[Rfam]
RNA sequence: AUUGCUUAGGUCUGUGGUUGAAAGUCGAUGCCAGUCGCAGGCGAAACGAUCCACGUAAGGAGUCCAAAAGCGGCUCUGAUCAUGGUGCGGCUUAGAGGUAAGACCUGCCGGGAAUCUUGUACAUAUUUUUAUUGCCCGAGAGUAGAAGUAGUGAGGGGAUAGUUCCUAUUAGCGAAACUUCCAGCAGGCGGGUGUGGGGUCAAAGACCAGGUCGGCUAAGCAGU
Numbered sequence: 001a002u003u004g005c006u007u008a009g010g011u012c013u014g015u016g017g018u019u020g021a022a023a024g025u026c027g028a029u030g031c032c033a034g035u036c037g038c039a040g041g042c043g044a045a046a047c048g049a050u051c052c053a054c055g056u057a058a059g060g061a062g063u064c065c066a067a068a069a070g071c072g073g074c075u076c077u078g079a080u081c082a083u084g085g086u087g088c089g090g091c092u093u094a095g096a097g098g099u100a101a102g103a104c105c106u107g108c109c110g111g112g113a114a115u116c117u118u119g120u121a122c123a124u125a126u127u128u129u130u131a132u133u134g135c136c137c138g139a140g141a142g143u144a145g146a147a148g149u150a151g152u153g154a155g156g157g158g159a160u161a162g163u164u165c166c167u168a169u170u171a172g173c174g175a176a177a178c179u180u181c182c183a184g185c186a187g188g189c190g191g192g193u194g195u196g197g198g199g200u201c202a203a204a205g206a207c208c209a210g211g212u213c214g215g216c217u218a219a220g221c222a223g224u
Stems, first nucleotide, its partner, number of pairs: 001224009012215003015209005028195003031041001033092007050085002055080001058077003063072001083202001104188005109138004142181001144179002151173002157166003
RNA: raiA RNA